A member of the RNA family "RgsA sRNA" from Pseudomonas sp. TAD18, 191 nucleotides long.
On this family, see Livny et al., Nucleic Acids Res 2006: "Identification of 17 Pseudomonas aeruginosa sRNAs and prediction of sRNA-encoding genes in 10 diverse pathogens using the bioinformatic tool sRNAPredict2".
The family's consensus secondary structure was predicted with RNAalifold.
From the family's description: This small RNA (sRNA) was computationally identified in the genome of the opportunistic pathogen Pseudomonas aeruginosa and its expression verified by northern blot analysis. P16 sRNA appears to be conserved across several Pseudomonas species and Azotobacter vinelandii. In these species it is consistently located downstream of a predicted TatD deoxyribonuclease gene. P16 has a predicted Rho independent terminator at the 3' end but the function of P16 is unknown. It has been shown that this sRNA is transcribed from an RpoS-dependent promoter under positive, probably indirect GacA control in two Pseudomonas species. It was renamed RgsA (for regulation by GacA and stress).RpoS mRNA expression is repressed by RgsA during the exponential phase. The Hfq RNA chaperone is required for the repression.
By type it is a small RNA.
RNA sequence: CAAACGAAUCACGGGUAUUCCAAAUCUGUUUAAAAAAUGAUCAAUGCCGACUGGACGCCCUACAAAGCUGACCAAUACUUAGGGAGUCGGCGUGACAUACCCCCCAAAUGCUUCGCCGAUAAGGGUCACAACGGAGUGUGCGCCUUUGUUUUACUCCUAAUGGUCUUAACCCGGAUUCCCCCAGAGCCCGG
Numbered sequence: 001c002a003a004a005c006g007a008a009u010c011a012c013g014g015g016u017a018u019u020c021c022a023a024a025u026c027u028g029u030u031u032a033a034a035a036a037a038u039g040a041u042c043a044a045u046g047c048c049g050a051c052u053g054g055a056c057g058c059c060c061u062a063c064a065a066a067g068c069u070g071a072c073c074a075a076u077a078c079u080u081a082g083g084g085a086g087u088c089g090g091c092g093u094g095a096c097a098u099a100c101c102c103c104c105c106a107a108a109u110g111c112u113u114c115g116c117c118g119a120u121a122a123g124g125g126u127c128a129c130a131a132c133g134g135a136g137u138g139u140g141c142g143c144c145u146u147u148g149u150u151u152u153a154c155u156c157c158u159a160a161u162g163g164u165c166u167u168a169a170c171c172c173g174g175a176u177u178c179c180c181c182c183a184g185a186g187c188c189c190g191g
Stems, first nucleotide, its partner, number of pairs: 039165005086120004091115002094112001096110003121147006129138001171191004176186003